[Rfam]
Overview
Rfam assigns this 189-nucleotide RNA from Hermetia illucens to the family "R2 RNA element". Lineage of the source: Eukaryota > Metazoa > Eumetazoa > Brachycera > Hermetia. The literature on the family includes a 1993 paper in Cell by Luan et al., "Reverse transcription of R2Bm RNA is primed by a nick at the chromosomal target site: a mechanism for non-LTR retrotransposition". This family represents the 3' UTR region of the R2 retrotransposable element. This family is known to interact with the R2-encoded reverse transcriptase in a reaction known as target primed reverse transcription (TPRT). The family's RNA type in Rfam is cis-regulatory element. A search with the family's covariance model found it, with a score of 45 bits.

RNA sequence: GGAUAGCCAUAGAGGAAUGACAGCAUAAUUUUUAACUGGCCCCGUGAAGUAAUAUCCAACGGCCUUUGCAUGGGGUGAGCAGUUGAAGUGUGCAUGGGUGUGGUUUAAUACGUAGGCGUGAACUUACGUCCGCGAAUCGUGUACGUGAGCGGUUUCUGCUGAUGUCUUUAGAAGAUUCCACAUCCUGGC
Numbered sequence: 001g002g003a004u005a006g007c008c009a010u011a012g013a014g015g016a017a018u019g020a021c022a023g024c025a026u027a028a029u030u031u032u033u034a035a036c037u038g039g040c041c042c043c044g045u046g047a048a049g050u051a052a053u054a055u056c057c058a059a060c061g062g063c064c065u066u067u068g069c070a071u072g073g074g075g076u077g078a079g080c081a082g083u084u085g086a087a088g089u090g091u092g093c094a095u096g097g098g099u100g101u102g103g104u105u106u107a108a109u110a111c112g113u114a115g116g117c118g119u120g121a122a123c124u125u126a127c128g129u130c131c132g133c134g135a136a137u138c139g140u141g142u143a144c145g146u147g148a149g150c151g152g153u154u155u156c157u158g159c160u161g162a163u164g165u166c167u168u169u170a171g172a173a174g175a176u177u178c179c180a181c182a183u184c185c186u187g188g189c
Stems, first nucleotide, its partner, number of pairs: 040075006079189002095187004100181003108142005117134004122129002144164003148160002